[Rfam]
RNA sequence: UCAGUCGGUCGGGUAGCCGCGCUUGUCCAGUGCCGAAAGGCGGCAGGUGAGGAAAGUCCGGGCUCCAGGGAAAUACGGUGCCGGGUAACGCCCGGCGGGGGCGACCCCAGGGAAAGUGCCACAGAAAACAAACCGCCCCGUCUUCCGUAUUCUUGCGAUGCGCAUAUCUGCAAUGCAUCGAACAAGGACAGGGAUGACGGGGUAAGGGUGAAAAGGUGGGGUAAGAGCCCACCGCGCCGGUGGUAACAUUGGCGGCACGGUAAACCCCACCGGGAGCAAGACCGAAUAGGGACGGCGCGUUAGUCCGAAAGGGCUGACAAUCGAUUUCCAGAUCAGCCGUCCGGGUGGGUUGCAAGAGGCGGGUGGCGACAUCCGUCCCAGAUGAAUGGCUACCACGUCGGAUGGAAAUCCGGCCAUACAGAACCCGGCUUACAGACCGGCUGACAUU
Numbered sequence: 001u002c003a004g005u006c007g008g009u010c011g012g013g014u015a016g017c018c019g020c021g022c023u024u025g026u027c028c029a030g031u032g033c034c035g036a037a038a039g040g041c042g043g044c045a046g047g048u049g050a051g052g053a054a055a056g057u058c059c060g061g062g063c064u065c066c067a068g069g070g071a072a073a074u075a076c077g078g079u080g081c082c083g084g085g086u087a088a089c090g091c092c093c094g095g096c097g098g099g100g101g102c103g104a105c106c107c108c109a110g111g112g113a114a115a116g117u118g119c120c121a122c123a124g125a126a127a128a129c130a131a132a133c134c135g136c137c138c139c140g141u142c143u144u145c146c147g148u149a150u151u152c153u154u155g156c157g158a159u160g161c162g163c164a165u166a167u168c169u170g171c172a173a174u175g176c177a178u179c180g181a182a183c184a185a186g187g188a189c190a191g192g193g194a195u196g197a198c199g200g201g202g203u204a205a206g207g208g209u210g211a212a213a214a215g216g217u218g219g220g221g222u223a224a225g226a227g228c229c230c231a232c233c234g235c236g237c238c239g240g241u242g243g244u245a246a247c248a249u250u251g252g253c254g255g256c257a258c259g260g261u262a263a264a265c266c267c268c269a270c271c272g273g274g275a276g277c278a279a280g281a282c283c284g285a286a287u288a289g290g291g292a293c294g295g296c297g298c299g300u301u302a303g304u305c306c307g308a309a310a311g312g313g314c315u316g317a318c319a320a321u322c323g324a325u326u327u328c329c330a331g332a333u334c335a336g337c338c339g340u341c342c343g344g345g346u347g348g349g350u351u352g353c354a355a356g357a358g359g360c361g362g363g364u365g366g367c368g369a370c371a372u373c374c375g376u377c378c379c380a381g382a383u384g385a386a387u388g389g390c391u392a393c394c395a396c397g398u399c400g401g402a403u404g405g406a407a408a409u410c411c412g413g414c415c416a417u418a419c420a421g422a423a424c425c426c427g428g429c430u431u432a433c434a435g436a437c438c439g440g441c442u443g444a445c446a447u448u
Stems, first nucleotide, its partner, number of pairs: 001444010011433001012394007020049008054431003058428005063276004076272005081095005096110001097108004111267002116265002118261003133207002135203008215233006234256001235254008280351004290342006321335001323333001325331001358377008